[Rfam]
RNA sequence: ACACCCCAUGAUGCUCAGGUCCGCCGCAUCUCCUGGGUCCGUGGGGUCGGCCGGUCGGCUUGGCGCAUAGUGGCCUCCUCGUACCGCUGCCAAUGCCGGCCGGCCCCCUU
Numbered sequence: 001a002c003a004c005c006c007c008a009u010g011a012u013g014c015u016c017a018g019g020u021c022c023g024c025c026g027c028a029u030c031u032c033c034u035g036g037g038u039c040c041g042u043g044g045g046g047u048c049g050g051c052c053g054g055u056c057g058g059c060u061u062g063g064c065g066c067a068u069a070g071u072g073g074c075c076u077c078c079u080c081g082u083a084c085c086g087c088u089g090c091c092a093a094u095g096c097c098g099g100c101c102g103g104c105c106c107c108c109u110u
Stems, first nucleotide, its partner, number of pairs: 003047008014037006049105011

This 110-nucleotide RNA sequence from Manganibacter manganicus belongs to the Rfam family "EcpR1". Perviously named SmelC291, SmrC10, or Sra33. Gene Ontology terms of the family: regulation of translation in response to stress, mRNA binding and negative regulation of cell cycle. Lineage of the source: Bacteria > Pseudomonadati > Hyphomicrobiales > Phyllobacteriaceae > Manganibacter.